MIR2275 microRNA precursor family: a 98-nucleotide RNA sequence from Malus domestica.
[Rfam]
RNA sequence: AAGUCGUAUAUAAGAAUUGGAGAGGACUAAACAUAUUUAACUUCUUUACUGUAAGUCUUUAAUUUGUUUAGUUUUCUCCAAUAUCUUAUCUUCGAUAU
Numbered sequence: 001a002a003g004u005c006g007u008a009u010a011u012a013a014g015a016a017u018u019g020g021a022g023a024g025g026a027c028u029a030a031a032c033a034u035a036u037u038u039a040a041c042u043u044c045u046u047u048a049c050u051g052u053a054a055g056u057c058u059u060u061a062a063u064u065u066g067u068u069u070a071g072u073u074u075u076c077u078c079c080a081a082u083a084u085c086u087u088a089u090c091u092u093c094g095a096u097a098u
Base pairs, nucleotide, nucleotide: 004095005094006093008091011088012087013086014085016082017081018080019079020078021077023075024074025073026072027071028070029069030068032066033065

Pairs were carried over by alignment from the consensus structure, which was predicted with RNAalifold.